This 98-nucleotide RNA from Hydrogenophaga sp. IBVHS2 belongs to the Rfam family "SAH (S-adenosyl-L-homocysteine) riboswitch aptamer".
The literature on the family includes a 2008 paper in Mol Cell by Wang et al., "Riboswitches that sense S-adenosylhomocysteine and activate genes involved in coenzyme recycling".
The source organism's lineage runs through Bacteria, Betaproteobacteria, Burkholderiales, Comamonadaceae and Hydrogenophaga.
Pairs were carried over by alignment from the consensus structure, which is taken from published work.

RNA sequence: CUUCUCAAGGAGCGUUGCAGCGCUGCCGCCCCGCCGCCGGGGCCGGUCGGCGUCAGGCUUGGGUGGGCGCGAACAGGCCCGAACGACGCUCACAGGAC
Number, nucleotide and partner (000 for none) at each position: 001c000002u065003u000004c063005u062006c061007a060008a059009g000010g000011a000012g000013c000014g000015u000016u000017g000018c000019a000020g000021c052022g051023c050024u049025g048026c000027c000028g000029c000030c000031c000032c000033g000034c000035c000036g000037c000038c000039g000040g000041g000042g000043c000044c000045g000046g000047u000048c025049g024050g023051c022052g021053u000054c000055a000056g000057g000058c000059u008060u007061g006062g005063g004064u000065g002066g000067g000068c000069g000070c000071g000072a000073a000074c000075a000076g000077g000078c000079c000080c000081g000082a000083a000084c000085g000086a000087c000088g000089c000090u000091c000092a000093c000094a000095g000096g000097a000098c000